[Rfam]
RNA: Glycine riboswitch aptamer
Organism: Clostridium sp. CAG:43
RNA sequence: CAGGGACACUCUGGAGAGUCUCCAAGAAGGAGCGCCGAAGGUGUAAGACGGAUGCACGUCCAUGGUAUUCGUUGAUCUCUCAGGCAAAAGGACAGGGCAUACAAC
Numbered sequence: 001c002a003g004g005g006a007c008a009c010u011c012u013g014g015a016g017a018g019u020c021u022c023c024a025a026g027a028a029g030g031a032g033c034g035c036c037g038a039a040g041g042u043g044u045a046a047g048a049c050g051g052a053u054g055c056a057c058g059u060c061c062a063u064g065g066u067a068u069u070c071g072u073u074g075a076u077c078u079c080u081c082a083g084g085c086a087a088a089a090g091g092a093c094a095g096g097g098c099a100u101a102c103a104a105c
Stems, first nucleotide, its partner, number of pairs: 006100001009097005020032004034085003037081002041079001043077001047073009